[Rfam]
RNA sequence: GGGUGACCGUGAAUGGCACUGGAAGAAUUCACGGGAAAUUUCACCCGUGAAUCUGCGGUGCCAGACACGGUUGCCC
Numbered sequence: 001g002g003g004u005g006a007c008c009g010u011g012a013a014u015g016g017c018a019c020u021g022g023a024a025g026a027a028u029u030c031a032c033g034g035g036a037a038a039u040u041u042c043a044c045c046c047g048u049g050a051a052u053c054u055g056c057g058g059u060g061c062c063a064g065a066c067a068c069g070g071u072u073g074c075c076c
Base pairs, nucleotide, nucleotide: 003074004073005072006071007070008069009068010067014063015062016061017060018059020057021056023054025053026052029050030049031048032047033046034045

Rfam assigns this 76-nucleotide RNA sequence from Hyalella azteca to the family "mir-263 microRNA precursor family". It scores 57 bits against the family's covariance model. The base pairs follow the family's consensus structure, which was predicted with RNAalifold. The literature on the family includes a 2009 paper in BMC Genomics by Li et al., "Direct sequencing and expression analysis of a large number of miRNAs in Aedes aegypti and a multi-species survey of novel mosquito miRNAs". Its Rfam clan is "mir-182 clan".